[Rfam]
RNA sequence: GGAGUUGGCCAGACAACCGCGUCGCGCAAGCGCCGAGGAAAGUCCGGGCUCCACAGAGCAGAGUGCCAGGUAACGCCUGGGCGGCGCAAGCCGACGGCCAGUGCAACAGAAAACAUACCGCCGAACGGCCCGCGAGGGCGCGUGGUAAGGGCGAACCGGUGGGGUAAGAGCCCACCGCCUGCGGGGCUAACGCCGCAGGGCACGGUAAACCCCACUCGGAGCAAGGCCAAAUAGGGGUGCGAUGGAUUGGCUCGGUCCGCACCCGGGUGUGCUGCUUGAGCCUUGCGGUGACGCAAGGCCUAGAGGAAUGGUUGUCCACGACAGAACCCGGCUUAUCGGCCAACUCCGCCC
Dot-bracket structure: ((((((((((((((((((.((.(((....))).))....[[[.[[[[[((((...[[[[.((((((((((.....)))))(((((....)))).)((...((((.............(((((...((((((....)))).)).)))..)).......((((((.......))))))(((((((.(.....).).))))).)...))..)))))))))))))...(((.......((((((...(((((.]]]])))))))))))......)))......((((((((....))))))))..........)))))))..........]]]]]]]].).))))))))))....

Rfam assigns this 351-nucleotide RNA from Arenimonas maotaiensis to the family "Bacterial RNase P class A". A search with the family's covariance model found it, with a score of 297 bits. Pairs were carried over by alignment from the consensus structure, which is taken from published work. Rfam classes the family as a ribozyme. Lineage of the source: Bacteria > Gammaproteobacteria > Lysobacterales > Lysobacteraceae > Arenimonas.